[Rfam]
RNA sequence: UAGCAUCCUUGAAAACCCCCCAGUUGCUAUUUGUGAUUUCUGGGACAAGAAAGGGUGCAAGAAUAAACCUUAGAAUCAUCCAAAGCUGAGAGCUGUGUGUCAGUAGCUCUCGGUUAUUUCACCUCUAAGACAAAAAU
Numbered sequence: 001u002a003g004c005a006u007c008c009u010u011g012a013a014a015a016c017c018c019c020c021c022a023g024u025u026g027c028u029a030u031u032u033g034u035g036a037u038u039u040c041u042g043g044g045a046c047a048a049g050a051a052a053g054g055g056u057g058c059a060a061g062a063a064u065a066a067a068c069c070u071u072a073g074a075a076u077c078a079u080c081c082a083a084a085g086c087u088g089a090g091a092g093c094u095g096u097g098u099g100u101c102a103g104u105a106g107c108u109c110u111c112g113g114u115u116a117u118u119u120c121a122c123c124u125c126u127a128a129g130a131c132a133a134a135a136a137u
Stems, first nucleotide, its partner, number of pairs: 003058004009050002019044005026037001063137002069129006084115007092107002098103001